The record is a 76-nucleotide sequence from Smithornis capensis, which matches "mir-202 microRNA precursor family" in Rfam. It scores 67 bits against the family's covariance model.

[Rfam]
RNA sequence: UUGUUCCUUUUUCCUGUGUGUAUGCCUCUUUGAAAAUUGGUUCUAACGAGGUAUGGGGCAUGGAAAAAUGGGGCAA
Numbered sequence: 001u002u003g004u005u006c007c008u009u010u011u012u013c014c015u016g017u018g019u020g021u022a023u024g025c026c027u028c029u030u031u032g033a034a035a036a037u038u039g040g041u042u043c044u045a046a047c048g049a050g051g052u053a054u055g056g057g058g059c060a061u062g063g064a065a066a067a068a069u070g071g072g073g074c075a076a
Stems, first nucleotide, its partner, number of pairs: 010067003014063006021055003025051004030046003
Description
On this family, see Chen et al., Genes Dev 2005: "The developmental miRNA profiles of zebrafish as determined by small RNA cloning".